[Rfam]
RNA: Ribosomal protein L20 leader
Organism: Leuconostoc fallax
RNA sequence: UGAAACAAGUAGAAGCACCCGCUUCUCGCCUUAUGAUAGUUAUUGUUGGGCAGAUACACGUUGUACGUCAGUACUACAAGUGUUUAAGCAGGGUGGAAUAUUAUUUCUAUCCUGCUUUUCUUCUUGU
Numbered sequence: 001u002g003a004a005a006c007a008a009g010u011a012g013a014a015g016c017a018c019c020c021g022c023u024u025c026u027c028g029c030c031u032u033a034u035g036a037u038a039g040u041u042a043u044u045g046u047u048g049g050g051c052a053g054a055u056a057c058a059c060g061u062u063g064u065a066c067g068u069c070a071g072u073a074c075u076a077c078a079a080g081u082g083u084u085u086a087a088g089c090a091g092g093g094u095g096g097a098a099u100a101u102u103a104u105u106u107c108u109a110u111c112c113u114g115c116u117u118u119u120c121u122u123c124u125u126g127u
Stems, first nucleotide, its partner, number of pairs: 011026006028051003033046005089114010